Shown here is a 66-nucleotide RNA sequence from Trypanosoma theileri, a member of the family "Trypanosomatid snoRNA TB10Cs4H4". NCBI's taxonomy places the organism under Eukaryota, Discoba, Trypanosomatida, Trypanosomatidae, Trypanosoma. For this family Rfam cites "A genome-wide analysis of C/D and H/ACA-like small nucleolar RNAs in Trypanosoma brucei reveals a trypanosome-specific pattern of rRNA modification" (Liang et al., RNA, 2005). A search with the family's covariance model found it, with a score of 83 bits.
[Rfam]
RNA sequence: GAGGAGGCCCGUAGCCACGGUGCUAUGCCUGUUUAGUGGCGUACUGUGGGUGGUGGUUCUCCAAGA
Numbered sequence: 001g002a003g004g005a006g007g008c009c010c011g012u013a014g015c016c017a018c019g020g021u022g023c024u025a026u027g028c029c030u031g032u033u034u035a036g037u038g039g040c041g042u043a044c045u046g047u048g049g050g051u052g053g054u055g056g057u058u059c060u061c062c063a064a065g066a
Base pairs, nucleotide, nucleotide: 003062004061005060006058007057008056009055015049016048017047018046019045020044021043023041027040028039029038